c-di-AMP riboswitch aptamer (ydaO/yuaA leader): a 139-nucleotide RNA from Sporomusaceae bacterium FL31. NCBI's taxonomy places the organism under Bacteria, Bacillota, Negativicutes, Selenomonadales, Sporomusaceae. It scores 92 bits against the family's covariance model.
RNA sequence: AUUAAUAUUAUGCCGAAUCCUAACGGUACGGGGGAACCAGUAUAGUUACAGGGGUGAAUCCACAAUUUGUGGAAGGGUUAUUCCUUCUCUUUGACCCUAACCCGACAGCUAACCUCGGAGGCGCGAAAAGAGAGGUGUG
Numbered sequence: 001a002u003u004a005a006u007a008u009u010a011u012g013c014c015g016a017a018u019c020c021u022a023a024c025g026g027u028a029c030g031g032g033g034g035a036a037c038c039a040g041u042a043u044a045g046u047u048a049c050a051g052g053g054g055u056g057a058a059u060c061c062a063c064a065a066u067u068u069g070u071g072g073a074a075g076g077g078u079u080a081u082u083c084c085u086u087c088u089c090u091u092u093g094a095c096c097c098u099a100a101c102c103c104g105a106c107a108g109c110u111a112a113c114c115u116c117g118g119a120g121g122c123g124c125g126a127a128a129a130g131a132g133a134g135g136u137g138u139g
Stems, first nucleotide, its partner, number of pairs: 011123004019026002029117005038051001052103003060072004075097006
Dot-bracket structure: ..........((((....((....))..(((((....(............)(((.....((((.....))))..((((((...........))))))...))).........)))))..))))................